[Rfam]
RNA sequence: AUCUUUAUACUUUCGGGGAUCAAUUCUACAGUAGGUUACUAGAGAAAUGUUUCUGAACAGAGAGGGGAGAAAUCUCAAUGAAAAGCUGCAGUAGCUCUCCUGAGCAAGAAGCUGGCAGGCAGGUGGUGCCACCUGGUGGUAGCCACUGCUUGCUGUCGAUGAUCGCUCUGCUCCUUGGGCAAGGAUAAGAGAGAGAGAGAACACAAGUUGCAGGGU
Numbered sequence: 001a002u003c004u005u006u007a008u009a010c011u012u013u014c015g016g017g018g019a020u021c022a023a024u025u026c027u028a029c030a031g032u033a034g035g036u037u038a039c040u041a042g043a044g045a046a047a048u049g050u051u052u053c054u055g056a057a058c059a060g061a062g063a064g065g066g067g068a069g070a071a072a073u074c075u076c077a078a079u080g081a082a083a084a085g086c087u088g089c090a091g092u093a094g095c096u097c098u099c100c101u102g103a104g105c106a107a108g109a110a111g112c113u114g115g116c117a118g119g120c121a122g123g124u125g126g127u128g129c130c131a132c133c134u135g136g137u138g139g140u141a142g143c144c145a146c147u148g149c150u151u152g153c154u155g156u157c158g159a160u161g162a163u164c165g166c167u168c169u170g171c172u173c174c175u176u177g178g179g180c181a182a183g184g185a186u187a188a189g190a191g192a193g194a195g196a197g198a199g200a201a202c203a204c205a206a207g208u209u210g211c212a213g214g215g216u
Stems, first nucleotide, its partner, number of pairs: 004038001006035001008033004015027004050064002053062002072216004091204002095199005101193001104166002114154004120148003128143002131140002167190002169187002172184002
Rfam assigns this 216-nucleotide RNA from Colobus angolensis to the family "Small nucleolar RNA U3". Rfam describes the family as follows. Small nucleolar RNAs (snoRNAs) are involved in the processing and modification of rRNA in the nucleolus. There are two main classes of snoRNAs: the box C/D class, and the box H/ACA class. U3 snoRNA is a member of the box C/D class. Indeed, the box C/D element is a subset of the six short sequence elements found in all U3 snoRNAs, namely boxes A, A', B, C, C', and D. The U3 snoRNA secondary structure is characterised by a small 5' domain (with boxes A and A'), and a larger 3' domain (with boxes B, C, C', and D), the two domains being linked by a single-stranded hinge. Boxes B and C form the B/C motif, which appears to be exclusive to U3 snoRNAs, and boxes C' and D form the C'/D motif. The latter is functionally similar to the C/D motifs found in other snoRNAs. The 5' domain and the hinge region act as a pre-rRNA-binding domain. The 3' domain has conserved protein-binding sites. Both the box B/C and box C'/D motifs are sufficient for nuclear retention of U3 snoRNA. The box C'/D motif is also necessary for nucleolar localisation, stability and hyper-methylation of U3 snoRNA. Both box B/C and C'/D motifs are involved in specific protein interactions and are necessary for the rRNA processing functions of U3 snoRNA. A search with the family's covariance model found it, with a score of 68 bits. The family's consensus secondary structure is taken from published work. Lineage of the source: Eukaryota > Eumetazoa > Bilateria > Mammalia > Colobus angolensis.